Rfam assigns this 124-nucleotide sequence from Capra hircus to the family "Small nucleolar RNA SNORA72". The family has 29 seed sequences and 1,541 matches in Rfam 15.1.

RNA sequence: CUGCGAAUAUUCUCGCUGUUCGGAUAGUCAAGGCAGGCUAAACAUUUGCUAUAUUAAGACCAUGCAUGUGUCCCCAGAUCUACUUCUUUUCCUAAGUCUGGUUUUAUAAAUGCUGGUGAUAAAC
Numbered sequence: 001c002u003g004c005g006a007a008u009a010u011u012c013u014c015g016c017u018g019u020u021c022g023g024a025u026a027g028u029c030a031a032g033g034c035a036g037g038c039u040a041a042a043c044a045u046u047u048g049c050u051a052u053a054u055u056a057a058g059a060c061c062a063u064g065c066a067u068g069u070g071u072c073c074c075c076a077g078a079u080c081u082a083c084u085u086c087u088u089u090u091c092c093u094a095a096g097u098c099u100g101g102u103u104u105u106a107u108a109a110a111u112g113c114u115g116g117u118g119a120u121a122a123a124c
Stems, first nucleotide, its partner, number of pairs: 003049003016036005023029002059117004064113002074101006081094002
About the family: U72 is a member of the H/ACA class of snoRNAs. By type it is an H/ACA-box small nucleolar RNA.